[Rfam]
RNA sequence: GUCAACUACCCACCGUCUAAAGACGGGGGCUUGUGAUGAACAAGCCUUAGUUGGCUACCCUCAGCCGUAUGAAGAAACGGGCUUCCAUCUCUAAAGGAAGAUCAUCGGGCUACGUUAUAUAGGUCAUAACACCUUCGGAUGUUUCUCCUAGUCUGUCGCUCUGUUGUUUAGCUUUAAACAAUCCUGAGGGGUAGGGAUAGUGAGCUAAACGUAAAAAGCCUAUAUAACAUUGGGGAAGGAGAAUAAC
Numbered sequence: 001g002u003c004a005a006c007u008a009c010c011c012a013c014c015g016u017c018u019a020a021a022g023a024c025g026g027g028g029g030c031u032u033g034u035g036a037u038g039a040a041c042a043a044g045c046c047u048u049a050g051u052u053g054g055c056u057a058c059c060c061u062c063a064g065c066c067g068u069a070u071g072a073a074g075a076a077a078c079g080g081g082c083u084u085c086c087a088u089c090u091c092u093a094a095a096g097g098a099a100g101a102u103c104a105u106c107g108g109g110c111u112a113c114g115u116u117a118u119a120u121a122g123g124u125c126a127u128a129a130c131a132c133c134u135u136c137g138g139a140u141g142u143u144u145c146u147c148c149u150a151g152u153c154u155g156u157c158g159c160u161c162u163g164u165u166g167u168u169u170a171g172c173u174u175u176a177a178a179c180a181a182u183c184c185u186g187a188g189g190g191g192u193a194g195g196g197a198u199a200g201u202g203a204g205c206u207a208a209a210c211g212u213a214a215a216a217a218g219c220c221u222a223u224a225u226a227a228c229a230u231u232g233g234g235g236a237a238g239g240a241g242a243a244u245a246a247c
Stems, first nucleotide, its partner, number of pairs: 001055008010029002013026002016023002030044004058234003063111004114228011129164002133158001136155005141244001143243007166210009178201002181198005187192001
Rfam assigns this 247-nucleotide RNA sequence from Petrotoga mobilis to the family "HNH endonuclease-associated RNA and ORF (HEARO) RNA". The organism belongs to Petrotoga mobilis, within Bacteria. Rfam's curators put it in the seed alignment.